[Rfam]
RNA sequence: AAGAUUAAGCAGAAGCACCCGCUUCUCGCCUUAGUGAUUUGGUCGCUGGGCUUACGAGAUUAAUGAGUAGUUCUUGGUAGAACUGCUAGUGGCGGGGUGCGUGUGCACCUCGCCUUUUGCUUUUCUUU
Numbered sequence: 001a002a003g004a005u006u007a008a009g010c011a012g013a014a015g016c017a018c019c020c021g022c023u024u025c026u027c028g029c030c031u032u033a034g035u036g037a038u039u040u041g042g043u044c045g046c047u048g049g050g051c052u053u054a055c056g057a058g059a060u061u062a063a064u065g066a067g068u069a070g071u072u073c074u075u076g077g078u079a080g081a082a083c084u085g086c087u088a089g090u091g092g093c094g095g096g097g098u099g100c101g102u103g104u105g106c107a108c109c110u111c112g113c114c115u116u117u118u119g120c121u122u123u124u125c126u127u128u
Stems, first nucleotide, its partner, number of pairs: 011026006028051003034046004091114009
A member of the RNA family "Ribosomal protein L20 leader" from Paucilactobacillus wasatchensis, 128 nucleotides long. The family's consensus secondary structure was predicted with CMfinder. A search with the family's covariance model found it, with a score of 63 bits. By type it is a cis-regulatory leader. Gene Ontology term of the family: regulation of gene expression.